[Rfam]
RNA sequence: UUCUUAUUUAGAGUGGCGGAGUGACUAGGCACUGUGAAGCCCGGCAACCUUACGAGGUGCCAAUUCCUACAGACGCGACAGGUCUGAAAGAUAAGAA
Numbered sequence: 001u002u003c004u005u006a007u008u009u010a011g012a013g014u015g016g017c018g019g020a021g022u023g024a025c026u027a028g029g030c031a032c033u034g035u036g037a038a039g040c041c042c043g044g045c046a047a048c049c050u051u052a053c054g055a056g057g058u059g060c061c062a063a064u065u066c067c068u069a070c071a072g073a074c075g076c077g078a079c080a081g082g083u084c085u086g087a088a089a090g091a092u093a094a095g096a097a
Stems, first nucleotide, its partner, number of pairs: 001097008013042001015041003021032003026069004043061004048057002065089001070086005